[Rfam]
The record is a 232-nucleotide RNA sequence from Brassica napus, which matches "TeloSII non coding RNA 30" in Rfam. NCBI's taxonomy places the organism under Eukaryota, Euphyllophyta, Mesangiospermae, Pentapetalae, Brassica. By type it is a small RNA. Rfam 15.1 lists 20 matches to the family in 11 species. Rfam links the family to the GO term ncRNA polyadenylation. It scores 140 bits against the family's covariance model. The literature on the family includes a 2015 paper in BMC Genomics by Qu et al., "Promoter-based identification of novel non-coding RNAs reveals the presence of dicistronic snoRNA-miRNA genes in Arabidopsis thaliana". Rfam's curators write: Located downstream of the TeloSII elements. These elements have been shown to coordinate the expression of protein-coding gene related to ribosome biogenesis throughout the cell cycle in Arabidopsis.
RNA sequence: UCCACCCUACAAACCCCGAGUUCCCUUCUUCCUCCAUGCUUCUCACAACAUCAUCAUCAUCAUCUUCUCCCCAUUACACGCAACAUGAAGCUCUAAGACCAACAUCACUCGACACGAUCAAGAUCUCACCACUUCAUGAAGAUCCUCAAGAUUCAAGAGUUAUGAUCGAUUUGUUCUAGAUUCAACCAUCUCUCAUGCUUUUGUGUUGUAUUUUUGCUGCUAUUUUGGCCAA
Numbered sequence: 001u002c003c004a005c006c007c008u009a010c011a012a013a014c015c016c017c018g019a020g021u022u023c024c025c026u027u028c029u030u031c032c033u034c035c036a037u038g039c040u041u042c043u044c045a046c047a048a049c050a051u052c053a054u055c056a057u058c059a060u061c062a063u064c065u066u067c068u069c070c071c072c073a074u075u076a077c078a079c080g081c082a083a084c085a086u087g088a089a090g091c092u093c094u095a096a097g098a099c100c101a102a103c104a105u106c107a108c109u110c111g112a113c114a115c116g117a118u119c120a121a122g123a124u125c126u127c128a129c130c131a132c133u134u135c136a137u138g139a140a141g142a143u144c145c146u147c148a149a150g151a152u153u154c155a156a157g158a159g160u161u162a163u164g165a166u167c168g169a170u171u172u173g174u175u176c177u178a179g180a181u182u183c184a185a186c187c188a189u190c191u192c193u194c195a196u197g198c199u200u201u202u203g204u205g206u207u208g209u210a211u212u213u214u215u216g217c218u219g220c221u222a223u224u225u226u227g228g229c230c231a232a
Stems, first nucleotide, its partner, number of pairs: 071228003080220003087127002089124001091122002096118001135205005140199002149191004157183005164176002167173001